RNA: SAM riboswitch aptamer (S box leader)
Organism: Yeguia hominis
RNA sequence: AACUUAUCAAGAGUGGCGGAGGGAACAGGCCCUGUGAUGCCCGGCAACCUGCAAUUUGCAAGGUGCCAAAUCCUGCGGUAGAAACCGAAAGAUGAGUC
Numbered sequence: 001a002a003c004u005u006a007u008c009a010a011g012a013g014u015g016g017c018g019g020a021g022g023g024a025a026c027a028g029g030c031c032c033u034g035u036g037a038u039g040c041c042c043g044g045c046a047a048c049c050u051g052c053a054a055u056u057u058g059c060a061a062g063g064u065g066c067c068a069a070a071u072c073c074u075g076c077g078g079u080a081g082a083a084a085c086c087g088a089a090a091g092a093u094g095a096g097u098c
Base pairs, nucleotide, nucleotide: 002097003096004095005094006093007092008091013042015041016040017039021032022031023030026075027074028073029072043067044066045065046064048063049062050060051059052058053057071090076087077086078085079084